[Rfam]
RNA sequence: GGGGCCGCAGUAGGGGGUCACGGGUAAAGCUGAGGAAACUCCAGCCUCCUAGCCCAGUGGAGUCCCAAUAGGGACAAGGGCAGUCCCCUUGGCCACUGCACAGAAACGACAUCCCUGAGGUCGGAGAUGAAGGUGAUUGGACUCCCAGCGCGGCGACGUGCUGGGAUACAUGAGAUCGACCUCGGGGAAUGAAACGGCAGUCCUCCACGGAGCAAGUUGAGGAGGAGAUGAGCUUGGGCUCGAUCCUCCUCUGGUACGCUAAGUCAAAUCCCCCAAUUUACAGAAGCUGGGUUACUGCUGCGGCCCC
Numbered sequence: 001g002g003g004g005c006c007g008c009a010g011u012a013g014g015g016g017g018u019c020a021c022g023g024g025u026a027a028a029g030c031u032g033a034g035g036a037a038a039c040u041c042c043a044g045c046c047u048c049c050u051a052g053c054c055c056a057g058u059g060g061a062g063u064c065c066c067a068a069u070a071g072g073g074a075c076a077a078g079g080g081c082a083g084u085c086c087c088c089u090u091g092g093c094c095a096c097u098g099c100a101c102a103g104a105a106a107c108g109a110c111a112u113c114c115c116u117g118a119g120g121u122c123g124g125a126g127a128u129g130a131a132g133g134u135g136a137u138u139g140g141a142c143u144c145c146c147a148g149c150g151c152g153g154c155g156a157c158g159u160g161c162u163g164g165g166a167u168a169c170a171u172g173a174g175a176u177c178g179a180c181c182u183c184g185g186g187g188a189a190u191g192a193a194a195c196g197g198c199a200g201u202c203c204u205c206c207a208c209g210g211a212g213c214a215a216g217u218u219g220a221g222g223a224g225g226a227g228a229u230g231a232g233c234u235u236g237g238g239c240u241c242g243a244u245c246c247u248c249c250u251c252u253g254g255u256a257c258g259c260u261a262a263g264u265c266a267a268a269u270c271c272c273c274c275a276a277u278u279u280a281c282a283g284a285a286g287c288u289g290g291g292u293u294a295c296u297g298c299u300g301c302g303g304c305c306c307c
Stems, first nucleotide, its partner, number of pairs: 001307003005303007013274005021032003037293003041290005046212004051240005057208005062075005076090005091203002096200004112188011138170002216257002218254001222248005

This 307-nucleotide RNA from Candidatus Aramenus sulfurataquae belongs to the Rfam family "Archaeal RNase P".
Rfam describes the family as follows. Ribonuclease P (RNase P) is a ubiquitous endoribonuclease, found in archaea, bacteria and eukarya as well as chloroplasts and mitochondria.
The family's consensus secondary structure is taken from published work.
On this family, see Frank and Pace, Annu Rev Biochem 1998: "Ribonuclease P: unity and diversity in a tRNA processing ribozyme".
The organism belongs to Candidatus Aramenus, within Archaea.
The family's RNA type in Rfam is ribozyme.
Clan: RNaseP clan.